A member of the RNA family "Small nucleolar RNA SNORA1" from Sciurus vulgaris, 131 nucleotides long. The base pairs follow the family's consensus structure, which was predicted with PFOLD. Its family is annotated with RNA processing and nucleolus in the Gene Ontology. Taxonomically the source falls in Sciurus (Eukaryota, Dipnotetrapodomorpha, Mammalia, Theria). It scores 107 bits against the family's covariance model. It is annotated as an H/ACA-box small nucleolar RNA.
RNA sequence: AGCCUCAUUCUACAUGAGAAUGGACACUGUUGAUCAGGGUCCAAAACUGGUCAAUGCGGCCAAACUGACACAGGCUGUGCUUCCGUCACGGUGUAUAUAUUGCAGCCGAGACGACGAGACCUGUAACAUUU
Numbered sequence: 001a002g003c004c005u006c007a008u009u010c011u012a013c014a015u016g017a018g019a020a021u022g023g024a025c026a027c028u029g030u031u032g033a034u035c036a037g038g039g040u041c042c043a044a045a046a047c048u049g050g051u052c053a054a055u056g057c058g059g060c061c062a063a064a065c066u067g068a069c070a071c072a073g074g075c076u077g078u079g080c081u082u083c084c085g086u087c088a089c090g091g092u093g094u095a096u097a098u099a100u101u102g103c104a105g106c107c108g109a110g111a112c113g114a115c116g117a118g119a120c121c122u123g124u125a126a127c128a129u130u131u
Base pairs, nucleotide, nucleotide: 002060003059004058006056007055008054021043022042023041024040025039027037070124071123072122073121074120084110086108089105